[Rfam]
RNA sequence: GAAAAUACAAUGGGGAGCGCGUGAGCGCUGAGAGGAAGUUCGGCUUCGACCCAGAAACCUGAUGCGGAUCAUGCCGCCGUAGGGAUGUGGACGUACUCUUGUG
Numbered sequence: 001g002a003a004a005a006u007a008c009a010a011u012g013g014g015g016a017g018c019g020c021g022u023g024a025g026c027g028c029u030g031a032g033a034g035g036a037a038g039u040u041c042g043g044c045u046u047c048g049a050c051c052c053a054g055a056a057a058c059c060u061g062a063u064g065c066g067g068a069u070c071a072u073g074c075c076g077c078c079g080u081a082g083g084g085a086u087g088u089g090g091a092c093g094u095a096c097u098c099u100u101g102u103g
Stems, first nucleotide, its partner, number of pairs: 006091001008089002011053004017028004035047005058083004064077004

Description
The family of this 103-nucleotide RNA sequence from Ruminococcaceae bacterium D16 is "TPP riboswitch aptamer (THI element)". Its family is annotated with thiamine pyrophosphate binding in the Gene Ontology. The family's consensus secondary structure is taken from published work. The match comes from Rfam's covariance-model search (62 bits). The source organism's lineage runs through Bacteria, Bacillota, Clostridia, Eubacteriales and Oscillospiraceae.